Rfam assigns this 129-nucleotide RNA from Chaetura pelagica to the family "Small Cajal body specific RNA 4". scaRNAs are a specific class of small nuclear RNAs which localise to the Cajal bodies and guide the modification of RNA polymerase II transcribed spliceosomal RNAs U1, U2, U4, U5 and U12. It scores 89 bits against the family's covariance model. Rfam 15.1 lists 634 matches to the family in 510 species. The literature on the family includes a 2002 paper in EMBO J by Darzacq et al., "Cajal body-specific small nuclear RNAs: a novel class of 2'-O-methylation and pseudouridylation guide RNAs". The source organism's lineage runs through Eukaryota, Craniata, Teleostomi, Saurischia and Chaetura.
[Rfam]
RNA sequence: ACUGGAGGACUAAUCGGCCUGAGUCUGAAGAGUGAGACUCAGAUGCCAAUCACCUCCUAAAAGAGAAGGGAUGGAGAGAGCAGUCCAGCUUGCAGAGGAGCAAAGGGCUGACUGUGCCAUCCGACACCA
Numbered sequence: 001a002c003u004g005g006a007g008g009a010c011u012a013a014u015c016g017g018c019c020u021g022a023g024u025c026u027g028a029a030g031a032g033u034g035a036g037a038c039u040c041a042g043a044u045g046c047c048a049a050u051c052a053c054c055u056c057c058u059a060a061a062a063g064a065g066a067a068g069g070g071a072u073g074g075a076g077a078g079a080g081c082a083g084u085c086c087a088g089c090u091u092g093c094a095g096a097g098g099a100g101c102a103a104a105g106g107g108c109u110g111a112c113u114g115u116g117c118c119a120u121c122c123g124a125c126a127c128c129a
Base pairs, nucleotide, nucleotide: 003059004057005056006055007054008053017044019042021040022039023038024037025036026035068122069121070120079113080112081110082109083108084107085106086105091102092101093100